[Rfam]
RNA sequence: GGAGUCGGACGGAUCGUCGCCGCGGGGGCAACUCCGGGGAGGAAAGUCCGGGCUCCAAAGGGCAGAACGCUGGAUAACAUCCAGGGAGGGCAACCUCCGGACAGCGCCACAGAAAGCAAACCGCCCGGCCUCGGCCGGGUAAGGGUGAAACGGUGGUGUAAGAGACCACCAGAUGCCGUGGUGACACGGCAUGCUCGGCAUACCCCGUUCGGAGCAAGACCAAAUAGGGAAGGCGGCCGGCCCGGCCGAAGCCUUCCGGGUAGGUUGCUUGAGGGUGUGGGCAACCGCACUCCUAGAGGAAUGACGGUCACACGCGGGCAACCGUGUGGACAGAACCCGGCUUACAGUCCGACUCCCGCA
Numbered sequence: 001g002g003a004g005u006c007g008g009a010c011g012g013a014u015c016g017u018c019g020c021c022g023c024g025g026g027g028g029c030a031a032c033u034c035c036g037g038g039g040a041g042g043a044a045a046g047u048c049c050g051g052g053c054u055c056c057a058a059a060g061g062g063c064a065g066a067a068c069g070c071u072g073g074a075u076a077a078c079a080u081c082c083a084g085g086g087a088g089g090g091c092a093a094c095c096u097c098c099g100g101a102c103a104g105c106g107c108c109a110c111a112g113a114a115a116g117c118a119a120a121c122c123g124c125c126c127g128g129c130c131u132c133g134g135c136c137g138g139g140u141a142a143g144g145g146u147g148a149a150a151c152g153g154u155g156g157u158g159u160a161a162g163a164g165a166c167c168a169c170c171a172g173a174u175g176c177c178g179u180g181g182u183g184a185c186a187c188g189g190c191a192u193g194c195u196c197g198g199c200a201u202a203c204c205c206c207g208u209u210c211g212g213a214g215c216a217a218g219a220c221c222a223a224a225u226a227g228g229g230a231a232g233g234c235g236g237c238c239g240g241c242c243c244g245g246c247c248g249a250a251g252c253c254u255u256c257c258g259g260g261u262a263g264g265u266u267g268c269u270u271g272a273g274g275g276u277g278u279g280g281g282c283a284a285c286c287g288c289a290c291u292c293c294u295a296g297a298g299g300a301a302u303g304a305c306g307g308u309c310a311c312a313c314g315c316g317g318g319c320a321a322c323c324g325u326g327u328g329g330a331c332a333g334a335a336c337c338c339g340g341c342u343u344a345c346a347g348u349c350c351g352a353c354u355c356c357c358g359c360a
Base pairs, nucleotide, nucleotide: 001356002355003354004353005352006351007350008349009348010347011345012309013308014307015306016305017304018303020039021038023036024035025034026033027032044343045342046341048340049339050338051337052336053214054213055212056211060243061242062241063240065210066209067208068207069206070084071083072082073081074080085098086097087096088095089094099205100204104203106199107198108197121144122143123140124139125138126137127136128135129134152170153169154168155167156166157165172194173192174191175190176189177188178187179186180185218266219265220264221263228257229256230255231254232253233252234248235247236246237245238244273292274291275290276289277288278287279286280285
The record is a 360-nucleotide RNA sequence from Desulfovibrio desulfuricans, which matches "Bacterial RNase P class A" in Rfam.
The family's consensus secondary structure is taken from published work.
Rfam classes the family as a ribozyme.